[Rfam]
RNA sequence: CCUCCCCUGAUGAGCAUCCUUCUGACUUUCGUUCUUCUGAGUCUGCUGAAGUCGCUGUUGAAAAACUGAGGAGG
Numbered sequence: 001c002c003u004c005c006c007c008u009g010a011u012g013a014g015c016a017u018c019c020u021u022c023u024g025a026c027u028u029u030c031g032u033u034c035u036u037c038u039g040a041g042u043c044u045g046c047u048g049a050a051g052u053c054g055c056u057g058u059u060g061a062a063a064a065a066c067u068g069a070g071g072a073g074g
Stems, first nucleotide, its partner, number of pairs: 001074003005070001